Shown here is a 70-nucleotide sequence from bacterium 1xD42-87, a member of the family "pemK RNA".
The family's consensus secondary structure is taken from published work.
The family's RNA type in Rfam is cis-regulatory element.
It scores 38 bits against the family's covariance model.
RNA sequence: AUAAUGAUACUUCCGGCUUACAAGUCGAGUGUGAUCCGGUCAAUUUAGAAUGACGGUGCGAUACCGAUGU
Numbered sequence: 001a002u003a004a005u006g007a008u009a010c011u012u013c014c015g016g017c018u019u020a021c022a023a024g025u026c027g028a029g030u031g032u033g034a035u036c037c038g039g040u041c042a043a044u045u046u047a048g049a050a051u052g053a054c055g056g057u058g059c060g061a062u063a064c065c066g067a068u069g070u
Stems, first nucleotide, its partner, number of pairs: 012067001013039004040053003054066003